This 70-nucleotide sequence from Zootermopsis nevadensis belongs to the Rfam family "Small nucleolar RNA SNORD18". The organism belongs to Zootermopsis, within Eukaryota. A reference for the family is Prislei et al. (1993), "Two different snoRNAs are encoded in introns of amphibian and human L1 ribosomal protein genes", Nucleic Acids Res. The family is grouped with related families in Rfam's "SNORD18 clan". The family's RNA type in Rfam is C/D-box small nucleolar RNA.

RNA sequence: GAGACAUGAUGAUUCUACUUUGGUCCGUGUUUAUGAAUUUCUUAUUGAUUUUUUUCAAAGUGCUGAUCUC
Numbered sequence: 001g002a003g004a005c006a007u008g009a010u011g012a013u014u015c016u017a018c019u020u021u022g023g024u025c026c027g028u029g030u031u032u033a034u035g036a037a038u039u040u041c042u043u044a045u046u047g048a049u050u051u052u053u054u055u056c057a058a059a060g061u062g063c064u065g066a067u068c069u070c
Stems, first nucleotide, its partner, number of pairs: 001070004